[Rfam]
RNA: TPP riboswitch aptamer (THI element)
RNA sequence: UCGUACCACUGGGGGAGCUCUGUUAGAGCUGAGAAAGAAAUUUGAUUUCUUGACCCCUUGAACCUGAUCUAGGUAAUACUAGCGUAGGGAAGUGGGCUUUUGAAGUG
Numbered sequence: 001u002c003g004u005a006c007c008a009c010u011g012g013g014g015g016a017g018c019u020c021u022g023u024u025a026g027a028g029c030u031g032a033g034a035a036a037g038a039a040a041u042u043u044g045a046u047u048u049c050u051u052g053a054c055c056c057c058u059u060g061a062a063c064c065u066g067a068u069c070u071a072g073g074u075a076a077u078a079c080u081a082g083c084g085u086a087g088g089g090a091a092g093u094g095g096g097c098u099u100u101u102g103a104a105g106u107g
Stems, first nucleotide, its partner, number of pairs: 006095005011057004016051001017029005036050005063088004069082004